Notes:
The family of this 130-nucleotide sequence from Erinaceus europaeus is "Small nucleolar RNA SNORA24". It scores 86 bits against the family's covariance model.
[Rfam]
RNA sequence: CUCCAUGAAUCUUUGAGUCCUGUUGACUGUGGCAAAUAUCCUUCCUAGACACAGAAGAGCAUAUUCUUGUAUACUGACAUAGCUGCCAUCAGUUAAUUGAUUUCAGUUCUAACUUUCACAAGUAACAUUU
Numbered sequence: 001c002u003c004c005a006u007g008a009a010u011c012u013u014u015g016a017g018u019c020c021u022g023u024u025g026a027c028u029g030u031g032g033c034a035a036a037u038a039u040c041c042u043u044c045c046u047a048g049a050c051a052c053a054g055a056a057g058a059g060c061a062u063a064u065u066c067u068u069g070u071a072u073a074c075u076g077a078c079a080u081a082g083c084u085g086c087c088a089u090c091a092g093u094u095a096a097u098u099g100a101u102u103u104c105a106g107u108u109c110u111a112a113c114u115u116u117c118a119c120a121a122g123u124a125a126c127a128u129u130u
Base pairs, nucleotide, nucleotide: 002055003054006051007050015041017039018038021034022033023032024031068127069126070125075120076119079115083106084105085104088101089100090099091098

About the family: ACA24 is a member of the H/ACA class of snoRNA that guide the sites of modification of uridines to pseudouridines.